[Rfam]
RNA: EFASI RNA
RNA sequence: UUGACCGAUACCGAGGCUGGUCACCUAAACCAGAGGGAGUUACCUGUUGUUUAACAGGCGGCUGUACUGAGUUAAGUAUAUGUCUGUAUCCCCAUACCUAAACUUUGUUUAGGUCUGAUGCAGGUAUCGUUCA
Number, nucleotide and partner (000 for none) at each position: 001u133002u000003g131004a130005c000006c129007g128008a127009u126010a125011c124012c123013g000014a000015g000016g000017c033018u032019g031020g030021u029022c000023a000024c000025c000026u000027a000028a000029a021030c020031c019032a018033g017034a000035g092036g091037g090038a089039g000040u000041u000042a000043c058044c057045u056046g055047u054048u000049g000050u000051u000052u000053a000054a047055c046056a045057g044058g043059c086060g085061g084062c000063u080064g079065u078066a077067c076068u000069g000070a000071g000072u000073u000074a000075a000076g067077u066078a065079u064080a063081u000082g000083u000084c061085u060086g059087u000088a000089u038090c037091c036092c035093c000094a000095u000096a000097c000098c000099u000100a000101a000102a000103c000104u000105u000106u000107g000108u000109u000110u000111a000112g000113g000114u000115c000116u000117g000118a000119u000120g000121c000122a000123g012124g011125u010126a009127u008128c007129g006130u004131u003132c000133a001